[Rfam]
RNA sequence: GUGGGCUACGGUGAUAUGACGCCUCAGACGUACUUAGGAAGGAUUGCGGGUGGCGUGUGUGCUUUGGCUGGUGCUCUCACCAUUGGACUACCUGUGCCUAUCAUCGUCUCCAAC
Numbered sequence: 001g002u003g004g005g006c007u008a009c010g011g012u013g014a015u016a017u018g019a020c021g022c023c024u025c026a027g028a029c030g031u032a033c034u035u036a037g038g039a040a041g042g043a044u045u046g047c048g049g050g051u052g053g054c055g056u057g058u059g060u061g062c063u064u065u066g067g068c069u070g071g072u073g074c075u076c077u078c079a080c081c082a083u084u085g086g087a088c089u090a091c092c093u094g095u096g097c098c099u100a101u102c103a104u105c106g107u108c109u110c111c112a113a114c
Stems, first nucleotide, its partner, number of pairs: 001114002004111002008107004013102004018097001021095002037077003049063003